[Rfam]
Rfam assigns this 215-nucleotide RNA sequence from Salarias fasciatus to the family "Small nucleolar RNA SNORA73 family". Pairs were carried over by alignment from the consensus structure, which is taken from published work. U17 (SNORA73A and SNORA73B) also known as E1 belongs to the H/ACA class of small nucleolar RNAs (snoRNAs). Vertebrate U17 is intron-encoded and ranges in length from 200-230 nucleotides, longer than most snoRNAs.
RNA sequence: CCGACGUGGACAUCCAGAAAGUUCCUGGCUCUGUCCUGGUGGCGUAUGGGAGCGUAGCCGCAAGGCCGAGACGUACAGUCCCGUUCCACGACGUCGGACACUGAGCUCCGUCCCCGGCGUCUCGCCGGUGAGGACGAGCGUCCUGCAUAUUCCUACAACUUCCCAGAGUCCCUGUGGGGCCGUGACUGGGGAGCCAAACCAUGCAGUGCACAUCG
Numbered sequence: 001c002c003g004a005c006g007u008g009g010a011c012a013u014c015c016a017g018a019a020a021g022u023u024c025c026u027g028g029c030u031c032u033g034u035c036c037u038g039g040u041g042g043c044g045u046a047u048g049g050g051a052g053c054g055u056a057g058c059c060g061c062a063a064g065g066c067c068g069a070g071a072c073g074u075a076c077a078g079u080c081c082c083g084u085u086c087c088a089c090g091a092c093g094u095c096g097g098a099c100a101c102u103g104a105g106c107u108c109c110g111u112c113c114c115c116g117g118c119g120u121c122u123c124g125c126c127g128g129u130g131a132g133g134a135c136g137a138g139c140g141u142c143c144u145g146c147a148u149a150u151u152c153c154u155a156c157a158a159c160u161u162c163c164c165a166g167a168g169u170c171c172c173u174g175u176g177g178g179g180c181c182g183u184g185a186c187u188g189g190g191g192a193g194c195c196a197a198a199c200c201a202u203g204c205a206g207u208g209c210a211c212a213u214c215g
Base pairs, nucleotide, nucleotide: 001097002096003095004094005093006092007091008036009035010034011033012032014028015027016026018023039089040088041087042086048082049081050080051079052076054074055073058068143206144205145204146203147202148201159193160192161191162190163189164188168180169179171177172176